A member of the RNA family "mir-133 microRNA precursor family" from Alca torda, 65 nucleotides long. On this family, see Lagos-Quintana et al., Curr Biol 2002: "Identification of tissue-specific microRNAs from mouse". mir-133 was first experimentally characterised in mouse and homologues have since been discovered in several other species. The mature sequence is excised from the 3' arm of the hairpin. Rfam links the family to the GO terms miRNA-mediated post-transcriptional gene silencing and RISC complex. The source organism's lineage runs through Eukaryota, Deuterostomia, Amniota, Archosauria and Alca. The family's consensus secondary structure was predicted with PFOLD.

RNA sequence: UCCCUGGGGCUGGUAAAAAGGAACCAGAUCAACUUGCAACUGGAUUUGGUCCCCUUCAACCAGCU
Numbered sequence: 001u002c003c004c005u006g007g008g009g010c011u012g013g014u015a016a017a018a019a020g021g022a023a024c025c026a027g028a029u030c031a032a033c034u035u036g037c038a039a040c041u042g043g044a045u046u047u048g049g050u051c052c053c054c055u056u057c058a059a060c061c062a063g064c065u
Base pairs, nucleotide, nucleotide: 008065009064010063011062012061013060014059017056018055020052021051022050024049025048026047027046028045029044030043